[Rfam]
Manganese Mn2+ riboswitch aptamer (yybP-ykoY): a 110-nucleotide sequence from Aliidiomarina minuta. The family has 29 seed sequences and 1,126 matches in Rfam 15.1. Rfam describes the family as follows. This RNA was originally discovered in E. coli during a large scale screen and was named SraF. The family was later found to exist upstream of related families of protein genes in many bacteria, including the the yybP and ykoK genes in B. subtilis.

RNA sequence: CCUCAGGGGAGUAGUCGCUUCGCACGCCAGUGUGAAGGUGCAUAUCAACAUAAUUGGCUGAAAACGAGCCAUGGUAUGCACGGCAUUAGCUUGACGAGACCUGUGGUGUU
Number, nucleotide and partner (000 for none) at each position: 001c000002c000003u000004c000005a000006g000007g000008g000009g000010a000011g000012u000013a000014g000015u000016c000017g000018c000019u036020u035021c034022g000023c000024a000025c000026g000027c000028c000029a000030g000031u000032g000033u000034g021035a020036a019037g000038g081039u080040g079041c078042a077043u076044a075045u074046c073047a072048a000049c000050a000051u000052a000053a000054u000055u071056g070057g069058c068059u067060g000061a000062a000063a000064a000065c000066g000067a059068g058069c057070c056071a055072u047073g046074g045075u044076a043077u042078g041079c040080a039081c038082g000083g000084c000085a000086u000087u000088a000089g000090c000091u000092u000093g000094a000095c000096g000097a000098g000099a000100c000101c000102u000103g000104u000105g000106g000107u000108g000109u000110u000